RNA sequence: AGGGAUACGACGACACAACCAUGGAUGGGGGCGGGGGACCCACCGGUCCACCGACAUAAGGACCUGGGGCCGCUUGCGGCCCCUUGGGGUGAAGCCGAGUCGUUUCGCCGACACGGCCGGGCAACCUCUCCAGCCCGAACCCGACAGCUGACCUCGUGGGCGCUUUAGAGAGGACCU
Numbered sequence: 001a002g003g004g005a006u007a008c009g010a011c012g013a014c015a016c017a018a019c020c021a022u023g024g025a026u027g028g029g030g031g032c033g034g035g036g037g038a039c040c041c042a043c044c045g046g047u048c049c050a051c052c053g054a055c056a057u058a059a060g061g062a063c064c065u066g067g068g069g070c071c072g073c074u075u076g077c078g079g080c081c082c083c084u085u086g087g088g089g090u091g092a093a094g095c096c097g098a099g100u101c102g103u104u105u106c107g108c109c110g111a112c113a114c115g116g117c118c119g120g121g122c123a124a125c126c127u128c129u130c131c132a133g134c135c136c137g138a139a140c141c142c143g144a145c146a147g148c149u150g151a152c153c154u155c156g157u158g159g160g161c162g163c164u165u166u167a168g169a170g171a172g173g174a175c176c177u
Base pairs, nucleotide, nucleotide: 011162012161014159019029020028031157032156033155034154035153036152041086042085087142088141089140095116096115097114119136120135121134122133
The record is a 177-nucleotide RNA sequence from Mycolicibacterium agri, which matches "c-di-AMP riboswitch aptamer (ydaO/yuaA leader)" in Rfam. The source organism's lineage runs through Bacteria, Mycobacteriales, Mycobacteriaceae, Mycobacterium and Mycobacterium (subgen. Mycolicibacterium). The family has 106 seed sequences and 7,607 matches in Rfam 15.1. The pairing is the family consensus, mapped onto this sequence.